Overview: The record is a 96-nucleotide RNA from Iodobacter ciconiae, which matches "TPP riboswitch aptamer (THI element)" in Rfam. About the family: Vitamin B(1) in its active form thiamin pyrophosphate (TPP) is an essential coenzyme that is synthesised by coupling of pyrimidine and thiazole moieties in bacteria. The previously detected thiamin-regulatory element, thi box was extended, resulting in a new, highly conserved RNA secondary structure, the THI element, which is widely distributed in eubacteria and also occurs in some archaea. Analysis of operon structures identified a large number of new candidate thiamin-regulated genes, mostly transporters, in various prokaryotic organisms. The THI element is a riboswitch that directly binds to TPP to regulate gene expression through a variety of mechanisms in archaea, bacteria and eukaryotes. through a variety of mechanisms in archaea, bacteria and eukaryotes. Tandem TPP riboswitches have been reported where both TPP riboswitches respond independently to TPP. The structure of TPP riboswitch has been reported for Escherichia coli and Arabidopsis thaliana. Taxonomically the source falls in Iodobacter (Bacteria, Pseudomonadati, Betaproteobacteria, Chitinibacteraceae).
[Rfam]
RNA sequence: CUGCCUGACUCGGGGUGCCGCUGAUUGCCAGCGGCUGAGAAAUACCCGUGACCUGAUCUGGAUCAUGCCAGCGUAGGGAAGUCGGCGCUCUUUGGC
Numbered sequence: 001c002u003g004c005c006u007g008a009c010u011c012g013g014g015g016u017g018c019c020g021c022u023g024a025u026u027g028c029c030a031g032c033g034g035c036u037g038a039g040a041a042a043u044a045c046c047c048g049u050g051a052c053c054u055g056a057u058c059u060g061g062a063u064c065a066u067g068c069c070a071g072c073g074u075a076g077g078g079a080a081g082u083c084g085g086c087g088c089u090c091u092u093u094g095g096c
Stems, first nucleotide, its partner, number of pairs: 006084005011048004016042001017035007052077004058071004